RNA sequence: CCCAUAAGUAAUAAAAGGUAUGUUUAGAUCCCUUAAUUUUAUUUAAAGUAUCAGUUCGGUCCUUUCUGUUAAUUUAAUUCAAAAAAACGUUAAGUUUAGGGACCAAACUAAUACUAAUUAAAUAAGUUAAGGGACCAAAAUUUAACGUUUUUUUGAAUUAAAUUAAGAGAAAAGACCAAAUUGAUACUUUAAAUAAAGUUAGGGGAUCUAAACGGACUUUUUCUUACUUAGGACC
Dot-bracket structure: ..(.((((..............(((.(((.(((((((((((((.(((............................................................................................................................................))).))))))))))))).))).)))..............)))).)...
Numbered sequence: 001c002c003c004a005u006a007a008g009u010a011a012u013a014a015a016a017g018g019u020a021u022g023u024u025u026a027g028a029u030c031c032c033u034u035a036a037u038u039u040u041a042u043u044u045a046a047a048g049u050a051u052c053a054g055u056u057c058g059g060u061c062c063u064u065u066c067u068g069u070u071a072a073u074u075u076a077a078u079u080c081a082a083a084a085a086a087a088c089g090u091u092a093a094g095u096u097u098a099g100g101g102a103c104c105a106a107a108c109u110a111a112u113a114c115u116a117a118u119u120a121a122a123u124a125a126g127u128u129a130a131g132g133g134a135c136c137a138a139a140a141u142u143u144a145a146c147g148u149u150u151u152u153u154u155g156a157a158u159u160a161a162a163u164u165a166a167g168a169g170a171a172a173a174g175a176c177c178a179a180a181u182u183g184a185u186a187c188u189u190u191a192a193a194u195a196a197a198g199u200u201a202g203g204g205g206a207u208c209u210a211a212a213c214g215g216a217c218u219u220u221u222u223c224u225u226a227c228u229u230a231g232g233a234c235c
Stems, first nucleotide, its partner, number of pairs: 003232001005230004023212003027208003031204013045190003
The record is a 235-nucleotide RNA sequence from Medicago truncatula, which matches "MIR2655 microRNA precursor family" in Rfam. Taxonomically the source falls in Medicago (Eukaryota, Viridiplantae, Embryophyta, Gunneridae). Rfam 15.1 lists 892 matches to the family in 5 species. The family's consensus secondary structure was predicted with RNAalifold. A search with the family's covariance model found it, with a score of 218 bits.